The record is a 447-nucleotide part of an RNA from Hymenobacter sp. 5317J-9, which matches "Bacterial large subunit ribosomal RNA" in Rfam.
The family's consensus secondary structure is taken from published work.
NCBI's taxonomy places the organism under Bacteria, Pseudomonadati, Cytophagia, Cytophagales, Hymenobacter.
[Rfam]
RNA sequence: CUCCCCGAAAUGUAUUGAGGUACAGCGUCGGCGUGGAGGUCAGUGGAGGUAGAGCUACCAAUAGGACUAGGGGGUGUCAGAGCCUACCGAAUCCUGAUGAACUCCGAAUGCCACUGGCUAUAGCCGGCAGUGAGGCCUGGGGUGCUAAGGUCCCCGGCCGAGAGGGAAAGAACCCAGACCAACAGCUAAGGUCCCUAAAUCUAGGUUAAGUUGAACAAAGGAGGUCCAGUUGCUUUGACAGCCAGGAGGUUGGCUUGGAAGCAGCCAUUCCUUUAAAGAGUGCGUAACAGCUCACUGGUCGAGCGACCGGGCAUCGAUAAUACGCGGGCAUCAAACCUAGUACCGAAGCUUUGGAUGUAGUCUGCAAGAUGACUACGUGGUAGGGGAGCAUUCUCCUUGCGGUGAAGCCGCGUCGUCAGGCGCGGUGGAGCGUGGAGAAAAGCAUAU
Numbered sequence: 001c002u003c004c005c006c007g008a009a010a011u012g013u014a015u016u017g018a019g020g021u022a023c024a025g026c027g028u029c030g031g032c033g034u035g036g037a038g039g040u041c042a043g044u045g046g047a048g049g050u051a052g053a054g055c056u057a058c059c060a061a062u063a064g065g066a067c068u069a070g071g072g073g074g075u076g077u078c079a080g081a082g083c084c085u086a087c088c089g090a091a092u093c094c095u096g097a098u099g100a101a102c103u104c105c106g107a108a109u110g111c112c113a114c115u116g117g118c119u120a121u122a123g124c125c126g127g128c129a130g131u132g133a134g135g136c137c138u139g140g141g142g143u144g145c146u147a148a149g150g151u152c153c154c155c156g157g158c159c160g161a162g163a164g165g166g167a168a169a170g171a172a173c174c175c176a177g178a179c180c181a182a183c184a185g186c187u188a189a190g191g192u193c194c195c196u197a198a199a200u201c202u203a204g205g206u207u208a209a210g211u212u213g214a215a216c217a218a219a220g221g222a223g224g225u226c227c228a229g230u231u232g233c234u235u236u237g238a239c240a241g242c243c244a245g246g247a248g249g250u251u252g253g254c255u256u257g258g259a260a261g262c263a264g265c266c267a268u269u270c271c272u273u274u275a276a277a278g279a280g281u282g283c284g285u286a287a288c289a290g291c292u293c294a295c296u297g298g299u300c301g302a303g304c305g306a307c308c309g310g311g312c313a314u315c316g317a318u319a320a321u322a323c324g325c326g327g328g329c330a331u332c333a334a335a336c337c338u339a340g341u342a343c344c345g346a347a348g349c350u351u352u353g354g355a356u357g358u359a360g361u362c363u364g365c366a367a368g369a370u371g372a373c374u375a376c377g378u379g380g381u382a383g384g385g386g387a388g389c390a391u392u393c394u395c396c397u398u399g400c401g402g403u404g405a406a407g408c409c410g411c412g413u414c415g416u417c418a419g420g421c422g423c424g425g426u427g428g429a430g431c432g433u434g435g436a437g438a439a440a441a442g443c444a445u446a447u
Base pairs, nucleotide, nucleotide: 001388002387003386004385005384006383011024012023013022014021015020026130027128028127029126030125031124032123037121038119039118040117041116042115043114044113045112046111052105053103054102059099060098063095064094065093066092070088071087072085073084074083075082134159135158136157137156139154140153141152142151143150164175165174166173179354180353181352182351184350185349186348190344191343192342199341201340202339203338204337205336206335220315221314224312225311226310227309229307230306231305232304233303241299242298243297244296245295247272248271249270252266253265254264273277278293282291283290355378356377357376358375359374360373361372362371389442391439392438393437394436395435396434398432399431400430407426408425409424410423411422412421413420414419